[Rfam]
RNA sequence: GCCGGUUUAGCUCAGCUGGUAGAGCAGCGGUUUUGUAAACCGAAGGUCACGGGUUCGAUUCCUGUAACCGGCA
Numbered sequence: 001g002c003c004g005g006u007u008u009a010g011c012u013c014a015g016c017u018g019g020u021a022g023a024g025c026a027g028c029g030g031u032u033u034u035g036u037a038a039a040c041c042g043a044a045g046g047u048c049a050c051g052g053g054u055u056c057g058a059u060u061c062c063u064g065u066a067a068c069c070g071g072c073a
Stems, first nucleotide, its partner, number of pairs: 001072007010025004028042004049065005
RNA: tRNA
Organism: Caulobacter sp.